This 313-nucleotide RNA sequence from Diplodia corticola belongs to the Rfam family "Group I catalytic intron". Pairs were carried over by alignment from the consensus structure, which is taken from published work. For this family Rfam cites "Self-splicing of group I introns" (Cech, Annu Rev Biochem, 1990). NCBI's taxonomy places the organism under Eukaryota, Ascomycota, dothideomyceta, Botryosphaeriales, Diplodia.
[Rfam]
RNA sequence: UCUUCGCCCUCCGCUACUAGGUGGUUAAGAGGUAACUGAAAGUGUUUACCUAGUCCCUCUAUCGGGGCGACAUUGUCAAAUUGUUCGGGGACUCCCUUAGAGCUUAGACUACCGCGGCCGGCCGAAAGGUCCGGUGCAGCACCAGGGUAACGACCUCGGGGAUGGUAACAACGUCUAAGAUUGGGUGAUCCGCAGCCAAGCUCCUAAGUCCGGCGAGAGCGGGAUACGGAGAAGGUUCACAGACUAGAUGGCAAUGGGUUCGGCCAGCGAUGGCCGGGUCUAAGAUAUAGUCGAUCCCCGCGGAAACGUGGGC
Numbered sequence: 001u002c003u004u005c006g007c008c009c010u011c012c013g014c015u016a017c018u019a020g021g022u023g024g025u026u027a028a029g030a031g032g033u034a035a036c037u038g039a040a041a042g043u044g045u046u047u048a049c050c051u052a053g054u055c056c057c058u059c060u061a062u063c064g065g066g067g068c069g070a071c072a073u074u075g076u077c078a079a080a081u082u083g084u085u086c087g088g089g090g091a092c093u094c095c096c097u098u099a100g101a102g103c104u105u106a107g108a109c110u111a112c113c114g115c116g117g118c119c120g121g122c123c124g125a126a127a128g129g130u131c132c133g134g135u136g137c138a139g140c141a142c143c144a145g146g147g148u149a150a151c152g153a154c155c156u157c158g159g160g161g162a163u164g165g166u167a168a169c170a171a172c173g174u175c176u177a178a179g180a181u182u183g184g185g186u187g188a189u190c191c192g193c194a195g196c197c198a199a200g201c202u203c204c205u206a207a208g209u210c211c212g213g214c215g216a217g218a219g220c221g222g223g224a225u226a227c228g229g230a231g232a233a234g235g236u237u238c239a240c241a242g243a244c245u246a247g248a249u250g251g252c253a254a255u256g257g258g259u260u261c262g263g264c265c266a267g268c269g270a271u272g273g274c275c276g277g278g279u280c281u282a283a284g285a286u287a288u289a290g291u292c293g294a295u296c297c298c299c300g301c302g303g304a305a306a307c308g309u310g311g312g313c
Base pairs, nucleotide, nucleotide: 002021003020004019031037071256072255073254074253075252077250078249082194083193086192087191088190089189094185095184096183195236196235201231202230203229204228209224210223211222240293242292243291244290245289246288258279259278260277261276262275263274264273265272266271298311299310300309301308302307